Rfam assigns this 394-nucleotide sequence from Pararhodobacter oceanensis to the family "Bacterial RNase P class A". Taxonomically the source falls in Pararhodobacter (Bacteria, Pseudomonadota, Alphaproteobacteria, Paracoccaceae). It is annotated as a ribozyme. Pairs were carried over by alignment from the consensus structure, which is taken from published work. Rfam's curators write: Ribonuclease P (RNase P) is a ubiquitous endoribonuclease, found in archaea, bacteria and eukarya as well as chloroplasts and mitochondria. It scores 291 bits against the family's covariance model.
RNA sequence: GCGGAUGGCUGGACGGCCGCGGGCCUUUCGGCUCGAGGAAAGUCCGGACUCCAUGAGGCAAUGGUGCCGGGUAAUGCCCGGCCGGGGCAACCCGAGGGAAAGCGCCACAGAAAACAAACCGCCCGCGCCUUUUGGCUGCGGGUCAGGGUGAAACGGUGGGGUAAGAGCCCACCGCGGGACGGGCAACCGGACCGGCAUGGCAAGCCCCACCAGGAGCAAUGCCGAAUAGGGGCCUCGUGCAGGUAUGAUCGCUUUAGCGAUAUCACUGCGGGGAGAUCUCAGCCCAGAGGCCCGGGUUGGCAGCUUGAAUCCGCCGGUAACGGCAGGGUCAGAGGAAUGGUCGUCGAAGGGGGCAACCCCGGAACAAAAUCCGGCUUACAGGCCGUCCGCGCAA
Numbered sequence: 001g002c003g004g005a006u007g008g009c010u011g012g013a014c015g016g017c018c019g020c021g022g023g024c025c026u027u028u029c030g031g032c033u034c035g036a037g038g039a040a041a042g043u044c045c046g047g048a049c050u051c052c053a054u055g056a057g058g059c060a061a062u063g064g065u066g067c068c069g070g071g072u073a074a075u076g077c078c079c080g081g082c083c084g085g086g087g088c089a090a091c092c093c094g095a096g097g098g099a100a101a102g103c104g105c106c107a108c109a110g111a112a113a114a115c116a117a118a119c120c121g122c123c124c125g126c127g128c129c130u131u132u133u134g135g136c137u138g139c140g141g142g143u144c145a146g147g148g149u150g151a152a153a154c155g156g157u158g159g160g161g162u163a164a165g166a167g168c169c170c171a172c173c174g175c176g177g178g179a180c181g182g183g184c185a186a187c188c189g190g191a192c193c194g195g196c197a198u199g200g201c202a203a204g205c206c207c208c209a210c211c212a213g214g215a216g217c218a219a220u221g222c223c224g225a226a227u228a229g230g231g232g233c234c235u236c237g238u239g240c241a242g243g244u245a246u247g248a249u250c251g252c253u254u255u256a257g258c259g260a261u262a263u264c265a266c267u268g269c270g271g272g273g274a275g276a277u278c279u280c281a282g283c284c285c286a287g288a289g290g291c292c293c294g295g296g297u298u299g300g301c302a303g304c305u306u307g308a309a310u311c312c313g314c315c316g317g318u319a320a321c322g323g324c325a326g327g328g329u330c331a332g333a334g335g336a337a338u339g340g341u342c343g344u345c346g347a348a349g350g351g352g353g354c355a356a357c358c359c360c361g362g363a364a365c366a367a368a369a370u371c372c373g374g375c376u377u378a379c380a381g382g383c384c385g386u387c388c389g390c391g392c393a394a
Base pairs, nucleotide, nucleotide: 001390002389003388004387005386006385007384008383009382010381011379012345013344014343015342016341017340018339020035021034022033023032024031025030040377041376042375044374045373046372047371048370049216050215051214052213057280058279060277062212063211064210065209066208067081068080069079070078071077082096083094084093085092086091097207098206102205103204104201105200106199119147120146121143122142123141124140125139126138127136128135129134155173156172157171158170159169160168174196175194176193177192180189181188182187220302221301222300223299230293231292232291233290234289235288271285272284273283310327311326313324314323315322316321